[Rfam]
RNA sequence: UACCUGUAGCGGGUCUCCGUCGGAAGGUCCACCGUCAUCCUCUACCUCCUUUCCUGCCAAGACCCUCACGAGAGCCCAGUUCGAGUCCGGUGGUGUUCGCUUCCACUCAGUCAGGUAACUACUGAUGCUGGACGGACCUAAGCAAUGAAUACUACAGUCGAGGGAAGCAAUUCUGCAGACGCGUAUUCACCAUUGGGCGGCGGCGCUGGAAUACUCCUGUGGGGGUUGGAAUGCGGUGGAGGGCUGGUUGAUCGACCGAUUUU
Numbered sequence: 001u002a003c004c005u006g007u008a009g010c011g012g013g014u015c016u017c018c019g020u021c022g023g024a025a026g027g028u029c030c031a032c033c034g035u036c037a038u039c040c041u042c043u044a045c046c047u048c049c050u051u052u053c054c055u056g057c058c059a060a061g062a063c064c065c066u067c068a069c070g071a072g073a074g075c076c077c078a079g080u081u082c083g084a085g086u087c088c089g090g091u092g093g094u095g096u097u098c099g100c101u102u103c104c105a106c107u108c109a110g111u112c113a114g115g116u117a118a119c120u121a122c123u124g125a126u127g128c129u130g131g132a133c134g135g136a137c138c139u140a141a142g143c144a145a146u147g148a149a150u151a152c153u154a155c156a157g158u159c160g161a162g163g164g165a166a167g168c169a170a171u172u173c174u175g176c177a178g179a180c181g182c183g184u185a186u187u188c189a190c191c192a193u194u195g196g197g198c199g200g201c202g203g204c205g206c207u208g209g210a211a212u213a214c215u216c217c218u219g220u221g222g223g224g225g226u227u228g229g230a231a232u233g234c235g236g237u238g239g240a241g242g243g244c245u246g247g248u249u250g251a252u253c254g255a256c257c258g259a260u261u262u263u
Stems, first nucleotide, its partner, number of pairs: 002014003019260005026253004031248003038243009048233001064225002066222005072216003076209005081203003085198009095137001097135003101132003104127002107125005113120002138142001146189007157180003164173003
RNA: Fungal signal recognition particle RNA